[Rfam]
RNA: c-di-AMP riboswitch aptamer (ydaO/yuaA leader)
RNA sequence: UAUGACAAUUCGCUGAAUUUUCCUAGGAAAAACGGGGGAACCACAAGAUAUCAAGGGGUGAAUAAAAGUGUGCGACAGCAUACUUUUUAGGGCGCUUUCUCAUCGCCCGAAUCCGGCAGCUAACCUCGUAAGCGACGAUGAGAAGGUAA
Numbered sequence: 001u002a003u004g005a006c007a008a009u010u011c012g013c014u015g016a017a018u019u020u021u022c023c024u025a026g027g028a029a030a031a032a033c034g035g036g037g038g039a040a041c042c043a044c045a046a047g048a049u050a051u052c053a054a055g056g057g058g059u060g061a062a063u064a065a066a067a068g069u070g071u072g073c074g075a076c077a078g079c080a081u082a083c084u085u086u087u088u089a090g091g092g093c094g095c096u097u098u099c100u101c102a103u104c105g106c107c108c109g110a111a112u113c114c115g116g117c118a119g120c121u122a123a124c125c126u127c128g129u130a131a132g133c134g135a136c137g138a139u140g141a142g143a144a145g146g147u148a149a
Base pairs, nucleotide, nucleotide: 011134012133013132014131018031019030020029032129033128034127035126036125037124042055056114057113058112064087065086066085067084068083069082070081071080090108091107092106093105